[Rfam]
RNA sequence: GUUGGAUAGAUGAUGUGCUAAUUAAACUGCGUUAUCUUCCUGCAAUUUCCUUACAAAAGGAAUUGAAGAAAACUUGUUUUACUGAUAUCCAAU
Numbered sequence: 001g002u003u004g005g006a007u008a009g010a011u012g013a014u015g016u017g018c019u020a021a022u023u024a025a026a027c028u029g030c031g032u033u034a035u036c037u038u039c040c041u042g043c044a045a046u047u048u049c050c051u052u053a054c055a056a057a058a059g060g061a062a063u064u065g066a067a068g069a070a071a072a073c074u075u076g077u078u079u080u081a082c083u084g085a086u087a088u089c090c091a092a093u
Stems, first nucleotide, its partner, number of pairs: 001093007
A member of the RNA family "Small nucleolar RNA snoR27" from Spinacia oleracea, 93 nucleotides long. Rfam classes the family as a C/D-box small nucleolar RNA. The family's consensus secondary structure was predicted with WAR. Rfam 15.1 lists 649 matches to the family in 212 species.